[Rfam]
RNA sequence: GUCAACACCCCUGCCUAAAGGCUAGGGGCUUCUAGCCUCCAGUCUUAGGAUUAGUUGACCCGACUCAGUACCUUGUGUACUACGUUAUUGGGCAAGUGUUUAAGUUCCUACCUACGGAUACGUUCGCGCAGCGUGCCGUUAAGCAAGCCAGUCUGUAGCUCUAGAAAUCAAAGAUUAAACAGGUUUAGAGGGUUAAGCCAGUGUUCUUGAUAAACUGAGGCACUCCGGCCUUGGGGGUUCCCCCCGUUGUUCGCCUUUGGCGUCUCCCUUUGGGAGAAGGAAGUGCCAACCCGUAAGGGUACCGACCAAUAACAUUGUUUAGGCUAACUUUAC
Numbered sequence: 001g002u003c004a005a006c007a008c009c010c011c012u013g014c015c016u017a018a019a020g021g022c023u024a025g026g027g028g029c030u031u032c033u034a035g036c037c038u039c040c041a042g043u044c045u046u047a048g049g050a051u052u053a054g055u056u057g058a059c060c061c062g063a064c065u066c067a068g069u070a071c072c073u074u075g076u077g078u079a080c081u082a083c084g085u086u087a088u089u090g091g092g093c094a095a096g097u098g099u100u101u102a103a104g105u106u107c108c109u110a111c112c113u114a115c116g117g118a119u120a121c122g123u124u125c126g127c128g129c130a131g132c133g134u135g136c137c138g139u140u141a142a143g144c145a146a147g148c149c150a151g152u153c154u155g156u157a158g159c160u161c162u163a164g165a166a167a168u169c170a171a172a173g174a175u176u177a178a179a180c181a182g183g184u185u186u187a188g189a190g191g192g193u194u195a196a197g198c199c200a201g202u203g204u205u206c207u208u209g210a211u212a213a214a215c216u217g218a219g220g221c222a223c224u225c226c227g228g229c230c231u232u233g234g235g236g237g238u239u240c241c242c243c244c245c246g247u248u249g250u251u252c253g254c255c256u257u258u259g260g261c262g263u264c265u266c267c268c269u270u271u272g273g274g275a276g277a278a279g280g281a282a283g284u285g286c287c288a289a290c291c292c293g294u295a296a297g298g299g300u301a302c303c304g305a306c307c308a309a310u311a312a313c314a315u316u317g318u319u320u321a322g323g324c325u326a327a328c329u330u331u332a333c
Stems, first nucleotide, its partner, number of pairs: 001059006007052001009028002011025002014021002029049003062319003067081005084313008093304001106165002112158008120329001123326001167211005173205003179202002182199007
This 333-nucleotide RNA sequence from Brasilonema sennae belongs to the Rfam family "HNH endonuclease-associated RNA and ORF (HEARO) RNA". The base pairs follow the family's consensus structure, which is taken from published work. The family's RNA type in Rfam is non-coding RNA gene. Rfam 15.1 lists 952 matches to the family in 249 species. The match comes from Rfam's covariance-model search (101 bits).